[Rfam]
The record is a 103-nucleotide RNA sequence from Alicyclobacillus acidocaldarius, which matches "Purine riboswitch aptamer" in Rfam. The family's consensus secondary structure is taken from published work. Taxonomically the source falls in Alicyclobacillus acidocaldarius subsp. acidocaldarius (Bacteria, Bacillati, Bacillota, Alicyclobacillus). From the family's description: Riboswitches are metabolite binding domains within certain messenger RNAs that serve as precision sensors for their corresponding targets. Allosteric rearrangement of mRNA structure is mediated by ligand binding, and this results in modulation of gene expression. A class of riboswitches that selectively recognises guanine and becomes saturated at concentrations as low as 5 nM. In Bacillus subtilis, this mRNA motif is located on at least five separate transcriptional units that together encode 17 genes that are mostly involved in purine transport and purine nucleotide biosynthesis.

RNA sequence: GGCGUGUGAUCCAAAAGGCCUCGUAUAAUGCCGGGAAUAUGGCUCGGCAGUCUCUACCAAGCGACCGAGAAUCGCUUGCGCUACGAGGCCGUUGUCAUAGAGC
Dot-bracket structure: .................((((((((...(((((((.......)))))))........(((((((.......)))))))...))))))))..............
Numbered sequence: 001g002g003c004g005u006g007u008g009a010u011c012c013a014a015a016a017g018g019c020c021u022c023g024u025a026u027a028a029u030g031c032c033g034g035g036a037a038u039a040u041g042g043c044u045c046g047g048c049a050g051u052c053u054c055u056a057c058c059a060a061g062c063g064a065c066c067g068a069g070a071a072u073c074g075c076u077u078g079c080g081c082u083a084c085g086a087g088g089c090c091g092u093u094g095u096c097a098u099a100g101a102g103c
Stems, first nucleotide, its partner, number of pairs: 018089008029049007058078007

It scores 71 bits against the family's covariance model.